RNA: Small nucleolar RNA SNORD56
Organism: Otolemur garnettii
RNA sequence: AUACAGUGAUGGUAAUAUUUGUCAUUCACCAAGUGAGUGUUGAUACUUUGGAUCUGAGUGA
Numbered sequence: 001a002u003a004c005a006g007u008g009a010u011g012g013u014a015a016u017a018u019u020u021g022u023c024a025u026u027c028a029c030c031a032a033g034u035g036a037g038u039g040u041u042g043a044u045a046c047u048u049u050g051g052a053u054c055u056g057a058g059u060g061a
Base pairs, nucleotide, nucleotide: 002060003059004058008023009022010021011020